RNA sequence: AGAGGUCACAAGUUUGAGGCCAUAACAGAAGCUCUCACAGUGCAGCCAUAUCAGACUCCAACAAAUCUGUGAAUUCUGCU
Dot-bracket structure: ............[....[[[...(.(((((((.........)).]]]]...((((.(......).))))....))))).)

A member of the RNA family "Mammalian CPEB3 ribozyme" from Alligator mississippiensis, 80 nucleotides long. It scores 39 bits against the family's covariance model. The family's consensus secondary structure is taken from published work. The organism belongs to Alligator, within Eukaryota.